[Rfam]
RNA: Listeria snRNA rli45
RNA sequence: UUACUAUUUGCGCAAGUUUUUACUUAUAUAGUUAUGCUUUAGCUGUGGUAAUUCCAGCAUGAAUGACACUGCAACAA
Numbered sequence: 001u002u003a004c005u006a007u008u009u010g011c012g013c014a015a016g017u018u019u020u021u022a023c024u025u026a027u028a029u030a031g032u033u034a035u036g037c038u039u040u041a042g043c044u045g046u047g048g049u050a051a052u053u054c055c056a057g058c059a060u061g062a063a064u065g066a067c068a069c070u071g072c073a074a075c076a077a
Base pairs, nucleotide, nucleotide: 008051009050010049011047012046013045014025015024016023017022031043032042033041034040